[Rfam]
RNA sequence: CUUGAUCGAGCCCAGCCACAGCGGGUCCGCGUCCUCACGUCCCUGGCCGUAGGUGGCCAGCAGCGCGUGCGCCUC
Numbered sequence: 001c002u003u004g005a006u007c008g009a010g011c012c013c014a015g016c017c018a019c020a021g022c023g024g025g026u027c028c029g030c031g032u033c034c035u036c037a038c039g040u041c042c043c044u045g046g047c048c049g050u051a052g053g054u055g056g057c058c059a060g061c062a063g064c065g066c067g068u069g070c071g072c073c074u075c
Stems, first nucleotide, its partner, number of pairs: 014026001016024002033069001038065002043060003047056003
The family of this 75-nucleotide sequence from Actinacidiphila reveromycinica is "ASpks TB sRNA". On this family, see Arnvig and Young, Mol Microbiol 2009: "Identification of small RNAs in Mycobacterium tuberculosis". The match comes from Rfam's covariance-model search (77 bits). It is annotated as an antisense RNA.